This 110-nucleotide sequence from Staphylococcus saccharolyticus belongs to the Rfam family "Manganese Mn2+ riboswitch aptamer (yybP-ykoY)". Its family is annotated with manganese ion binding in the Gene Ontology.
[Rfam]
RNA sequence: AUUAUCGUCAGAGGGGAGUAACUUGAGAAUAGUAAUGUAUAAUCUACUAUUCAACAUUUUAUCGUCAUUACGAAGGUAAGCCUUCCGGUAAAGUGGGCAAAGCUAUUGCU
Numbered sequence: 001a002u003u004a005u006c007g008u009c010a011g012a013g014g015g016g017a018g019u020a021a022c023u024u025g026a027g028a029a030u031a032g033u034a035a036u037g038u039a040u041a042a043u044c045u046a047c048u049a050u051u052c053a054a055c056a057u058u059u060u061a062u063c064g065u066c067a068u069u070a071c072g073a074a075g076g077u078a079a080g081c082c083u084u085c086c087g088g089u090a091a092a093g094u095g096g097g098c099a100a101a102g103c104u105a106u107u108g109c110u
Stems, first nucleotide, its partner, number of pairs: 027052006055095010072085005096110005
Taxonomically the source falls in Staphylococcus (Bacteria, Bacilli, Caryophanales, Staphylococcaceae).